[Rfam]
Description:
The family of this 119-nucleotide sequence from Streptomyces xinghaiensis is "Streptomyces-metH RNA". It is annotated as a small RNA.
RNA sequence: UAGUCCGCCCAGUGGAACGCCCCGGAACCCGGGCACCAUCACGGCUACGCUGACCGGGUGCGCUCUCCGCAUGUAGGGCGCAAAGCCGACAGCCGUCGCACCUCAGGGAGUUUUCCAUG
Numbered sequence: 001u002a003g004u005c006c007g008c009c010c011a012g013u014g015g016a017a018c019g020c021c022c023c024g025g026a027a028c029c030c031g032g033g034c035a036c037c038a039u040c041a042c043g044g045c046u047a048c049g050c051u052g053a054c055c056g057g058g059u060g061c062g063c064u065c066u067c068c069g070c071a072u073g074u075a076g077g078g079c080g081c082a083a084a085g086c087c088g089a090c091a092g093c094c095g096u097c098g099c100a101c102c103u104c105a106g107g108g109a110g111u112u113u114u115c116c117a118u119g
Base pairs, nucleotide, nucleotide: 059082060081061080062079064077065076066075085099086098088097089096090095